[Rfam]
This 378-nucleotide part of an RNA from Marinobacter gudaonensis belongs to the Rfam family "Bacterial large subunit ribosomal RNA". The source organism's lineage runs through Bacteria, Pseudomonadati, Gammaproteobacteria, Pseudomonadales and Marinobacter. A search with the family's covariance model found it, with a score of 2870 bits. On this family, see Yusupov et al., Science 2001: "Crystal structure of the ribosome at 5.5 A resolution".

RNA sequence: GACAAUGCGGGUGAAAAACCCGCACGCCGGAAGACCAAGGGUUCCUGCGCAACGCUAAUCGGCGCAGGGUGAGUCGGCCCCUAAGGCGAGACCGAAAGGUGUAGUCGAUGGGAAACGGGUUAAUAUUCCCGUACCUUGGAUAGCUGCGAUGGAGAGACGGAGAAGGCUAGGUGAGCCGGGCGACGGUUGUCCCGGUUUAAGCAUGUAGGGAGUGGACUUAGGCAAAUCCGGGUCCACAAUCCCGAGACGCGACGACGACUGCCCAUUGGGCGGGAAGUCAUUGAUGCCCUGCUUCCAGGAAAAUCUUCUAAGCUUCAGGCUAUUCGAGACCGUACCCCAAACCGACACAGGUGGUCAGGUAGAGAAUACCAAGGCGCU
Dot-bracket structure: .....((((((.......))))))((((....((((..((...((((((...((.....)).))))))......(((..((...(((.(.(((....))).).)))...))...(((((........)))))..(((((((((((((...(((((...((((..(((..(((((((((((..........))))))((..((.(...(((..(((((((.((.....)))))))))....)))...).))...))...(((((.....)))))....)))))...)))...))))........)))))...))....))))))))))).)))..)).....((......)).)))).((((.....))))..))))..